[Rfam]
RNA sequence: UUAAUCUUUAACGAAUCAAGGGUCCAGCAAUAAAAAACCCCGACUAUCGGGGUUUUUUGUUAUCUAGCUUUUUAAUUAUAGCUAGGUUGUUGCUUGGGAUUUAAAUUGGGCUCUAUGCCCUUUUUUU
Numbered sequence: 001u002u003a004a005u006c007u008u009u010a011a012c013g014a015a016u017c018a019a020g021g022g023u024c025c026a027g028c029a030a031u032a033a034a035a036a037a038c039c040c041c042g043a044c045u046a047u048c049g050g051g052g053u054u055u056u057u058u059g060u061u062a063u064c065u066a067g068c069u070u071u072u073u074a075a076u077u078a079u080a081g082c083u084a085g086g087u088u089g090u091u092g093c094u095u096g097g098g099a100u101u102u103a104a105a106u107u108g109g110g111c112u113c114u115a116u117g118c119c120c121u122u123u124u125u126u127u
Stems, first nucleotide, its partner, number of pairs: 034056009108120004
Dot-bracket structure: .................................(((((((((.....)))))))))...................................................((((.....)))).......